[Rfam]
Rfam assigns this 346-nucleotide sequence from Natronoglycomyces albus to the family "c-di-AMP riboswitch aptamer (ydaO/yuaA leader)". Pairs were carried over by alignment from the consensus structure.
RNA sequence: UCGAUUGGGCCGCCGAAUCACAACUGUGAACCGGGGACCCACUUCACAUGAUGCGAUCCACGAUCAGUAAUCGUCGCGUCACGGGGCGAAUCCCGCACACACAGAGUCGCGGUUUAACAGAGCUGAGGAAUCCAAAAGCUCUGUAGACAAUGGAAGUCGCGCCGCAGCCGGUGACACCGCUGCCAGCCAGGCCGACGACCAUGCGGUGGCCAGUGGGCCAACCCGGAACGGCACCCCCGCCGAUCUGGGUGACCACCACCCUCCACCGCCCGACUCUUACAGCAGGUAGGGCGAUCUUCCCGCCCGAGCCCGACAGCUAACUCGGUAGGCGGCACAGAGCUUUACU
Numbered sequence: 001u002c003g004a005u006u007g008g009g010c011c012g013c014c015g016a017a018u019c020a021c022a023a024c025u026g027u028g029a030a031c032c033g034g035g036g037a038c039c040c041a042c043u044u045c046a047c048a049u050g051a052u053g054c055g056a057u058c059c060a061c062g063a064u065c066a067g068u069a070a071u072c073g074u075c076g077c078g079u080c081a082c083g084g085g086g087c088g089a090a091u092c093c094c095g096c097a098c099a100c101a102c103a104g105a106g107u108c109g110c111g112g113u114u115u116a117a118c119a120g121a122g123c124u125g126a127g128g129a130a131u132c133c134a135a136a137a138g139c140u141c142u143g144u145a146g147a148c149a150a151u152g153g154a155a156g157u158c159g160c161g162c163c164g165c166a167g168c169c170g171g172u173g174a175c176a177c178c179g180c181u182g183c184c185a186g187c188c189a190g191g192c193c194g195a196c197g198a199c200c201a202u203g204c205g206g207u208g209g210c211c212a213g214u215g216g217g218c219c220a221a222c223c224c225g226g227a228a229c230g231g232c233a234c235c236c237c238c239g240c241c242g243a244u245c246u247g248g249g250u251g252a253c254c255a256c257c258a259c260c261c262u263c264c265a266c267c268g269c270c271c272g273a274c275u276c277u278u279a280c281a282g283c284a285g286g287u288a289g290g291g292c293g294a295u296c297u298u299c300c301c302g303c304c305c306g307a308g309c310c311c312g313a314c315a316g317c318u319a320a321c322u323c324g325g326u327a328g329g330c331g332g333c334a335c336a337g338a339g340c341u342u343u344a345c346u
Stems, first nucleotide, its partner, number of pairs: 011331004018029003030326006040083001084311003092286002095283001289305004

Lineage of the source: Bacteria > Bacillati > Glycomycetales > Glycomycetaceae > Natronoglycomyces.